Rfam assigns this 98-nucleotide RNA from Levilactobacillus suantsaii to the family "THF (Tetrahydrofolate) riboswitch aptamer". Taxonomically the source falls in Levilactobacillus (Bacteria, Bacillati, Bacilli, Lactobacillaceae). A reference for the family is Ames et al. (2010), "A eubacterial riboswitch class that senses the coenzyme tetrahydrofolate", Chem Biol.
RNA sequence: UACGGAGUAGGCGAUAGGGCGUUAAGUGCCGGUGGAACGCAAUGUGAACACCGGACGAAGGACAAGUGGUCCGCGAUCCUAUGGCCGCAUUGGCCGCA
Numbered sequence: 001u002a003c004g005g006a007g008u009a010g011g012c013g014a015u016a017g018g019g020c021g022u023u024a025a026g027u028g029c030c031g032g033u034g035g036a037a038c039g040c041a042a043u044g045u046g047a048a049c050a051c052c053g054g055a056c057g058a059a060g061g062a063c064a065a066g067u068g069g070u071c072c073g074c075g076a077u078c079c080u081a082u083g084g085c086c087g088c089a090u091u092g093g094c095c096g097c098a
Stems, first nucleotide, its partner, number of pairs: 001098001003096003010086003014082006020075003026056002029054006040092005060072004